[Rfam]
The record is an 82-nucleotide RNA sequence from Pseudonocardia hydrocarbonoxydans, which matches "SAH (S-adenosyl-L-homocysteine) riboswitch aptamer" in Rfam. It scores 39 bits against the family's covariance model. NCBI's taxonomy places the organism under Bacteria, Bacillati, Actinomycetota, Pseudonocardiales, Pseudonocardia.

RNA sequence: AUCCCCGAGAGGCGCUGCGACGGACCUGUGGUCCGCCACGCUCGGGGAGUCCGGGCCAUCGUGUUAAGGGCGCCUCCGAUCC
Numbered sequence: 001a002u003c004c005c006c007g008a009g010a011g012g013c014g015c016u017g018c019g020a021c022g023g024a025c026c027u028g029u030g031g032u033c034c035g036c037c038a039c040g041c042u043c044g045g046g047g048a049g050u051c052c053g054g055g056c057c058a059u060c061g062u063g064u065u066a067a068g069g070g071c072g073c074c075u076c077c078g079a080u081c082c
Stems, first nucleotide, its partner, number of pairs: 002048007021035006

Pairs were carried over by alignment from the consensus structure, which is taken from published work.